[Rfam]
RNA sequence: GCACCUAAGCAGCCCGGUUCAUUCUGUGAAGUGUUUGAAUCGGACAAUAUUUGGUGCCAUAGAGAUUCAACGUAAAUCCAGAUGGACCUCCUCUACCCGUGGAGCCUGUCUCUACAACUUUGAAACACAA
Numbered sequence: 001g002c003a004c005c006u007a008a009g010c011a012g013c014c015c016g017g018u019u020c021a022u023u024c025u026g027u028g029a030a031g032u033g034u035u036u037g038a039a040u041c042g043g044a045c046a047a048u049a050u051u052u053g054g055u056g057c058c059a060u061a062g063a064g065a066u067u068c069a070a071c072g073u074a075a076a077u078c079c080a081g082a083u084g085g086a087c088c089u090c091c092u093c094u095a096c097c098c099g100u101g102g103a104g105c106c107u108g109u110c111u112c113u114a115c116a117a118c119u120u121u122g123a124a125a126c127a128c129a130a
Stems, first nucleotide, its partner, number of pairs: 001057005012045001014043005020037002067123004072118001080111006087104001093102003

The family of this 130-nucleotide RNA from Dissostichus mawsoni is "Small nucleolar RNA SNORA55". About the family: ACA55 is a member of the H/ACA class of snoRNA that guide the sites of modification of uridines to pseudouridines. The family's consensus secondary structure was predicted with PFOLD. The family has 29 seed sequences and 1,476 matches in Rfam 15.1. Rfam links the family to the GO terms RNA processing and nucleolus.